[Rfam]
RNA sequence: AACUACCUUCGGGGUCGGGUGAAAUUCCCAACCGGCGGUGAUGAAGCUGUUGCUUCUAAGCCCGUGACCCGUUUUACGAUAUGUGUGUGAAGCGGUGGAUUUGGUGAGAAACCAAAGCCGACAGUAAAGUCUGGAUGGGAGAAGGUAUUG
Numbered sequence: 001a002a003c004u005a006c007c008u009u010c011g012g013g014g015u016c017g018g019g020u021g022a023a024a025u026u027c028c029c030a031a032c033c034g035g036c037g038g039u040g041a042u043g044a045a046g047c048u049g050u051u052g053c054u055u056c057u058a059a060g061c062c063c064g065u066g067a068c069c070c071g072u073u074u075u076a077c078g079a080u081a082u083g084u085g086u087g088u089g090a091a092g093c094g095g096u097g098g099a100u101u102u103g104g105u106g107a108g109a110a111a112c113c114a115a116a117g118c119c120g121a122c123a124g125u126a127a128a129g130u131c132u133g134g135a136u137g138g139g140a141g142a143a144g145g146u147a148u149u150g
Stems, first nucleotide, its partner, number of pairs: 004147007017029003031130002033120002035065004060118002069095005100116005122133003
Overview:
The record is a 150-nucleotide RNA sequence from Anaerobacillus arseniciselenatis, which matches "FMN riboswitch aptamer (RFN element)" in Rfam. The organism belongs to Anaerobacillus, within Bacteria.